[Rfam]
RNA: c-di-GMP-I-GGC riboswitch aptamer
Organism: Erysipelotrichia bacterium
Nucleotides: 078
Stems, first nucleotide, its partner, number of pairs: 003075002011036002016031006034065001039071004046067002048063003
Number, partner (000 for none) and nucleotide at each position: 001000a002000c003075u004074g005000a006000u007000a008000a009000a010000g011036g012035c013000a014000a015000a016031c017030c018029a019028u020027g021026a022000g023000u024000g025000a026021u027020c028019a029018u030017g031016g032000g033000a034065c035012g036011c037000a038000a039071a040070g041069c042068u043000a044000c045000a046067g047066g048063g049062u050061c051000u052000u053000c054000g055000a056000a057000g058000g059000a060000a061050g062049a063048c064000a065034g066047c067046c068042a069041g070040u071039u072000a073000c074004c075003a076000a077000a078000g